[Rfam]
RNA sequence: GUCGGGCUCAGUAGCGUGGGCUUAUAACCCAAGUGGGGACUUUAAAAUGGUUGAAUGUUAGGCAUGUUCAGAUGGUAGGGCUUGGGUGGUUAAUCUCUAGGCCUGCCCUGUCCAAGCUCAGAGUUGGGUCACGUGGUUCAUGCGGAAGCGUGGGCUGCUGGGCUCCUAAAGUGGGGUGGACUGCGUGAGGCUGGUUUCACAGAACAACGAGUAACUCCCGUUCUGUGCAGUGGAAGGAUAACGGGUUGGUGUUAUUCAAGCCCAAUGAAUGCCUGAUGGGCUGCACUAAUUAAACAACCAUUUUU
Numbered sequence: 001g002u003c004g005g006g007c008u009c010a011g012u013a014g015c016g017u018g019g020g021c022u023u024a025u026a027a028c029c030c031a032a033g034u035g036g037g038g039a040c041u042u043u044a045a046a047a048u049g050g051u052u053g054a055a056u057g058u059u060a061g062g063c064a065u066g067u068u069c070a071g072a073u074g075g076u077a078g079g080g081c082u083u084g085g086g087u088g089g090u091u092a093a094u095c096u097c098u099a100g101g102c103c104u105g106c107c108c109u110g111u112c113c114a115a116g117c118u119c120a121g122a123g124u125u126g127g128g129u130c131a132c133g134u135g136g137u138u139c140a141u142g143c144g145g146a147a148g149c150g151u152g153g154g155c156u157g158c159u160g161g162g163c164u165c166c167u168a169a170a171g172u173g174g175g176g177u178g179g180a181c182u183g184c185g186u187g188a189g190g191c192u193g194g195u196u197u198c199a200c201a202g203a204a205c206a207a208c209g210a211g212u213a214a215c216u217c218c219c220g221u222u223c224u225g226u227g228c229a230g231u232g233g234a235a236g237g238a239u240a241a242c243g244g245g246u247u248g249g250u251g252u253u254a255u256u257c258a259a260g261c262c263c264a265a266u267g268a269a270u271g272c273c274u275g276a277u278g279g280g281c282u283g284c285a286c287u288a289a290u291u292a293a294a295c296a297a298c299c300a301u302u303u304u305u
Base pairs, nucleotide, nucleotide: 001040002039003038004023005022006021007020008019009018010017028037029036030035044304045303046302047301048300049299050298051297052296053295056292057291058289059288060287062284063283064282068279069278070277074273075272076271077270078263079262080261081260082259083258084257085256087254088253089252091251092250097249098248099247101246102245103244104243105242107237108236111234112233113232114231116228117227119225120224121223122222123221124220126165127164128163129162130161133158134157135156136155137154138153139152140151141150142149143148166171173218174217175216176215177214182211184209185208186207191202192201193200
RNA: Plant signal recognition particle RNA